[Rfam]
RNA sequence: AUCCGUUGGACCACACCCCGCAAACCGAGACCUCUAGGGUGUCUAAAACACGUCUCUUAUAUCCUGUCUAAGGGUGACAGGAAAUAGUAACUCCA
Dot-bracket structure: .............(((((.(......[[[[[...).)))))..........]]]]].....(((((((.......))))))).............
Record summary: This 95-nucleotide RNA sequence belongs to the Rfam family "PhotoRC-II RNA". The sequence is in the family's curated seed alignment. Rfam classes the family as a cis-regulatory element.